[Rfam]
A member of the RNA family "SAM riboswitch aptamer (S box leader)" from Galactobacter valiniphilus, 98 nucleotides long. NCBI's taxonomy places the organism under Bacteria, Actinomycetota, Micrococcales, Micrococcaceae, Galactobacter.

RNA sequence: CAGCCAUCCAGAGCGAUCGAGAGACCUGGCUCGUCGACAUCGCAGCAACCACCCCGCCUUGUACGCGGGGACGGUGCUUCCGCCAGGAACGAUGGGAA
Dot-bracket structure: ...(((((....(((((...(((..[[[[)))......)))))((((.((.((((((.......))))))..))))))...(]]]]...))))))...